[Rfam]
RNA sequence: CGCCAGAAGCUGACGUGAAAGUGUGCUGGACGCGGGUUCGAUUUCCGCCACCUCCACCAUGCGGGGGUGUACUGGUUUCGACAGUGCCCGGAAGCCGAUGCCGACGAUCCGACAGGCGUUCGCCGUAAGCGAAGCAAAACCCAGAACUGCCAAUGAAAGCACGUUCCUGAAAGCGGCCUAA
Numbered sequence: 001c002g003c004c005a006g007a008a009g010c011u012g013a014c015g016u017g018a019a020a021g022u023g024u025g026c027u028g029g030a031c032g033c034g035g036g037u038u039c040g041a042u043u044u045c046c047g048c049c050a051c052c053u054c055c056a057c058c059a060u061g062c063g064g065g066g067g068u069g070u071a072c073u074g075g076u077u078u079c080g081a082c083a084g085u086g087c088c089c090g091g092a093a094g095c096c097g098a099u100g101c102c103g104a105c106g107a108u109c110c111g112a113c114a115g116g117c118g119u120u121c122g123c124c125g126u127a128a129g130c131g132a133a134g135c136a137a138a139a140c141c142c143a144g145a146a147c148u149g150c151c152a153a154u155g156a157a158a159g160c161a162c163g164u165u166c167c168u169g170a171a172a173g174c175g176g177c178c179u180a181a
Stems, first nucleotide, its partner, number of pairs: 001106002011098001023087002026084003032048005049069007110125002113122001
A member of the RNA family "permuted transfer-messenger RNA" from Hydrogenophaga aromaticivorans, 181 nucleotides long. Rfam's curators write: Bacterial tmRNA, also known as 10Sa RNA or SsrA, is named for its dual tRNA and mRNA-like properties. Its role is to liberate the mRNA from a stalled ribosome. To accomplish this part of the tmRNA is used as a reading frame that ends in a translation stop signal. The base pairs follow the family's consensus structure, which is taken from published work. A search with the family's covariance model found it, with a score of 96 bits.